[Rfam]
RNA sequence: CCCCGAUGAGGAAACCCCUCCGCGUCUGACCCCCCCCCGGCCACCAGGACCUGCCCAAGGUCGAACCCACUGGUGCUGGCGGGGGGAGGGGAGGAGGAUGCUGCGUCCCGAUGGACGGUCUGAGGGGG
Numbered sequence: 001c002c003c004c005g006a007u008g009a010g011g012a013a014a015c016c017c018c019u020c021c022g023c024g025u026c027u028g029a030c031c032c033c034c035c036c037c038c039g040g041c042c043a044c045c046a047g048g049a050c051c052u053g054c055c056c057a058a059g060g061u062c063g064a065a066c067c068c069a070c071u072g073g074u075g076c077u078g079g080c081g082g083g084g085g086g087a088g089g090g091g092a093g094g095a096g097g098a099u100g101c102u103g104c105g106u107c108c109c110g111a112u113g114g115a116c117g118g119u120c121u122g123a124g125g126g127g128g
Base pairs, nucleotide, nucleotide: 001127002126003125004124
This 128-nucleotide sequence from Strigops habroptila belongs to the Rfam family "Small nucleolar RNA SNORD22".
The base pairs follow the family's consensus structure, which was predicted with PFOLD.
Lineage of the source: Eukaryota > Eumetazoa > Craniata > Aves > Strigops.